[Rfam]
RNA sequence: GAAAGGCAAGAGUGAUGAAUCAAUUAGAUGCGUGAAUGGGGAUUGAAUGUUCAUUUUAAUUUCCCAUCUUGAACUCAAACCAUUGAGGCAUUAAUUUGUCUGACUUGCCAUUC
Numbered sequence: 001g002a003a004a005g006g007c008a009a010g011a012g013u014g015a016u017g018a019a020u021c022a023a024u025u026a027g028a029u030g031c032g033u034g035a036a037u038g039g040g041g042a043u044u045g046a047a048u049g050u051u052c053a054u055u056u057u058a059a060u061u062u063c064c065c066a067u068c069u070u071g072a073a074c075u076c077a078a079a080c081c082a083u084u085g086a087g088g089c090a091u092u093a094a095u096u097u098g099u100c101u102g103a104c105u106u107g108c109c110a111u112u113c
Stems, first nucleotide, its partner, number of pairs: 001113003005109006
Shown here is a 113-nucleotide sequence from Hibiscus trionum, a member of the family "Small nucleolar RNA Z266".
Lineage of the source: Eukaryota > Viridiplantae > Embryophyta > Magnoliopsida > Hibiscus.